[Rfam]
Shown here is a 119-nucleotide RNA sequence from Dyadobacter psychrotolerans, a member of the family "Group II catalytic intron D1-D4-2". From the family's description: Group II introns are found in rRNA, tRNA and mRNA of organelles in fungi, plants and protists, and also in mRNA in bacteria. Its family is annotated with Group II intron splicing in the Gene Ontology. The organism belongs to Dyadobacter, within Bacteria.

RNA sequence: GAAGGAGGGCCCUUCGGAACCACUGUCCAUACAGGGGUUUCAAUCCACCGUAAGGUGCUUUGGUCAAAAGCCCUGGUAUUGAACGUUACGGUCAAAAGGCUCCUGUAAGGGAGUUAGGA
Numbered sequence: 001g002a003a004g005g006a007g008g009g010c011c012c013u014u015c016g017g018a019a020c021c022a023c024u025g026u027c028c029a030u031a032c033a034g035g036g037g038u039u040u041c042a043a044u045c046c047a048c049c050g051u052a053a054g055g056u057g058c059u060u061u062g063g064u065c066a067a068a069a070g071c072c073c074u075g076g077u078a079u080u081g082a083a084c085g086u087u088a089c090g091g092u093c094a095a096a097a098g099g100c101u102c103c104u105g106u107a108a109g110g111g112a113g114u115u116a117g118g119a
Stems, first nucleotide, its partner, number of pairs: 001015005016041006023034004046118001048091006054080002057077003062072003098115006